[Rfam]
The family of this 168-nucleotide sequence from Sporolactobacillus putidus is "M-box riboswitch aptamer (ykoK leader)". Taxonomically the source falls in Sporolactobacillus (Bacteria, Bacillati, Bacillota, Caryophanales). The pairing is the family consensus, mapped onto this sequence.

RNA sequence: AUAUGCCCUCGUUAGGUGAGGCUCCUAUACAAACAAAGGCCACUGCCCGGAAAGAUCGAAAGAUGCCAAUGGGUAGAACAGGGAUUGCCGGACUAAGGCUUUUCUUAAGGUGGCUAAGGGAUGACCUUUACGUUGUAUAGUGCCAAAACUGGACCAGGGGGAACCGGU
Numbered sequence: 001a002u003a004u005g006c007c008c009u010c011g012u013u014a015g016g017u018g019a020g021g022c023u024c025c026u027a028u029a030c031a032a033a034c035a036a037a038g039g040c041c042a043c044u045g046c047c048c049g050g051a052a053a054g055a056u057c058g059a060a061a062g063a064u065g066c067c068a069a070u071g072g073g074u075a076g077a078a079c080a081g082g083g084a085u086u087g088c089c090g091g092a093c094u095a096a097g098g099c100u101u102u103u104c105u106u107a108a109g110g111u112g113g114c115u116a117a118g119g120g121a122u123g124a125c126c127u128u129u130a131c132g133u134u135g136u137a138u139a140g141u142g143c144c145a146a147a148a149c150u151g152g153a154c155c156a157g158g159g160g161g162a163a164c165c166g167g168u
Stems, first nucleotide, its partner, number of pairs: 005164001008161003011154002013096001015150003020144003025140008039114005045074005055064003081105004087099003116128003